RNA sequence: CCCUGGGGAAGGGGUUUCUUUCGGCCUUCAGCUGUAUGUGAGGCUGUAGGCCGGCGGAAACUACUUGCCCCCGGGC
Numbered sequence: 001c002c003c004u005g006g007g008g009a010a011g012g013g014g015u016u017u018c019u020u021u022c023g024g025c026c027u028u029c030a031g032c033u034g035u036a037u038g039u040g041a042g043g044c045u046g047u048a049g050g051c052c053g054g055c056g057g058a059a060a061c062u063a064c065u066u067g068c069c070c071c072c073g074g075g076c
Stems, first nucleotide, its partner, number of pairs: 005072004010066003013062007021054007029046003
A member of the RNA family "mir-2796 microRNA precursor family" from Frankliniella occidentalis, 76 nucleotides long. Rfam 15.1 lists 119 matches to the family in 116 species. The organism belongs to Frankliniella, within Eukaryota. The family's consensus secondary structure was predicted with RNAalifold. The match comes from Rfam's covariance-model search (75 bits).